The family of this 131-nucleotide sequence is "SAM (S-adenosyl methionine) riboswitch aptamer". A search with the family's covariance model found it, with a score of 56 bits. Its family is annotated with S-adenosylmethionine metabolic process and regulation of gene expression in the Gene Ontology.
RNA sequence: CUUCAAGAGACCCAACUGCCAAGCUCCGACUUGGUUGGGCACCAACCCCAUGUUCACGGGUGGUUCGGAUGACGAAGCGGUCUAUAUUCGCCGCAUGAGCGGCACUGUUGCUUGGUAUAGACAAGAGCAUC
Numbered sequence: 001c002u003u004c005a006a007g008a009g010a011c012c013c014a015a016c017u018g019c020c021a022a023g024c025u026c027c028g029a030c031u032u033g034g035u036u037g038g039g040c041a042c043c044a045a046c047c048c049c050a051u052g053u054u055c056a057c058g059g060g061u062g063g064u065u066c067g068g069a070u071g072a073c074g075a076a077g078c079g080g081u082c083u084a085u086a087u088u089c090g091c092c093g094c095a096u097g098a099g100c101g102g103c104a105c106u107g108u109u110g111c112u113u114g115g116u117a118u119a120g121a122c123a124a125g126a127g128c129a130u131c
Stems, first nucleotide, its partner, number of pairs: 001077004009040001011039006022031002041064003046060003080122008